[Rfam]
RNA sequence: ACAGGGGGCUGGAUGGCCGCGGGGGCAACCUCGAGGAAAGUCCGGACUCCACAAGGCAAUGGUGCCGGGUAACGCCCGGCUGGGGAAACCCAAGGGAUAGCGCCACAGAGAAGAGACUGCCCUGCUUGUCAGGGUGAUGGUGAAACGGUGGGGUAAGAGCCCACCGCGGGACUGGCAACAGAACCGGCGCGGCAAGCCCCACCAGGAGCAAUGCCAAAUAGGGACCGCGUGCCGCAUGGCAGGGGUGUCUUGCCCCGAGCAGGUCCGGGUUGGCAGCUAGAGGGCGCUUGGCAACAGGCGCUUUAGAUGAAUGGUCAUCCAAGGGUUUCGACCCUGGACAGAAUCCGGCUUAUAGGCCCCCUGUGCUG
Numbered sequence: 001a002c003a004g005g006g007g008g009c010u011g012g013a014u015g016g017c018c019g020c021g022g023g024g025g026c027a028a029c030c031u032c033g034a035g036g037a038a039a040g041u042c043c044g045g046a047c048u049c050c051a052c053a054a055g056g057c058a059a060u061g062g063u064g065c066c067g068g069g070u071a072a073c074g075c076c077c078g079g080c081u082g083g084g085g086a087a088a089c090c091c092a093a094g095g096g097a098u099a100g101c102g103c104c105a106c107a108g109a110g111a112a113g114a115g116a117c118u119g120c121c122c123u124g125c126u127u128g129u130c131a132g133g134g135u136g137a138u139g140g141u142g143a144a145a146c147g148g149u150g151g152g153g154u155a156a157g158a159g160c161c162c163a164c165c166g167c168g169g170g171a172c173u174g175g176c177a178a179c180a181g182a183a184c185c186g187g188c189g190c191g192g193c194a195a196g197c198c199c200c201a202c203c204a205g206g207a208g209c210a211a212u213g214c215c216a217a218a219u220a221g222g223g224a225c226c227g228c229g230u231g232c233c234g235c236a237u238g239g240c241a242g243g244g245g246u247g248u249c250u251u252g253c254c255c256c257g258a259g260c261a262g263g264u265c266c267g268g269g270u271u272g273g274c275a276g277c278u279a280g281a282g283g284g285c286g287c288u289u290g291g292c293a294a295c296a297g298g299c300g301c302u303u304u305a306g307a308u309g310a311a312u313g314g315u316c317a318u319c320c321a322a323g324g325g326u327u328u329c330g331a332c333c334c335u336g337g338a339c340a341g342a343a344u345c346c347g348g349c350u351u352a353u354a355g356g357c358c359c360c361c362u363g364u365g366c367u368g
Base pairs, nucleotide, nucleotide: 001364002363003362004361005360006359007358008357009356010355011353012319013318014317015316016315017314018313020033021032022031023030024029038351039350040349042348043347044346045345046344047208048207049206050205055251056250058248060204061203062202063201064200065079066078067077068076069075080094081092082091083090084089095199096198100197101196102193103192104191117139119135120134121133122132123131124130147165148164149163150162151161152160166188167186168185169184172181173180174179212275213274214273215272222266223265224264225263226262242256243255244254245253246252283302284301285300286299287298288297289296290295
Source information
The record is a 368-nucleotide sequence from Cognatishimia activa, which matches "Bacterial RNase P class A" in Rfam. The match comes from Rfam's covariance-model search (291 bits). The source organism's lineage runs through Bacteria, Alphaproteobacteria, Rhodobacterales, Paracoccaceae and Cognatishimia. Pairs were carried over by alignment from the consensus structure, which is taken from published work. Its family is annotated with dimeric ribonuclease P complex, tRNA processing and ribonuclease P activity in the Gene Ontology.